[Rfam]
RNA: PhotoRC-II RNA
Organism: Cymopoleiavirus swam2
RNA sequence: UUACAAACACCUGCCGCUUGACCGAGACUAGGCAGGUCUAACAAUCCGUCUCUCAUAUCCUUGCCUGAGGGUGGCGAGGAAAUAGUAUCUCCA
Dot-bracket structure: .........(((((..((.....[[[[[.)))))))...........]]]]]......(((((((.......)))))))..............
Numbered sequence: 001u002u003a004c005a006a007a008c009a010c011c012u013g014c015c016g017c018u019u020g021a022c023c024g025a026g027a028c029u030a031g032g033c034a035g036g037u038c039u040a041a042c043a044a045u046c047c048g049u050c051u052c053u054c055a056u057a058u059c060c061u062u063g064c065c066u067g068a069g070g071g072u073g074g075c076g077a078g079g080a081a082a083u084a085g086u087a088u089c090u091c092c093a
Stems, first nucleotide, its partner, number of pairs: 010036005017031002024052005059079007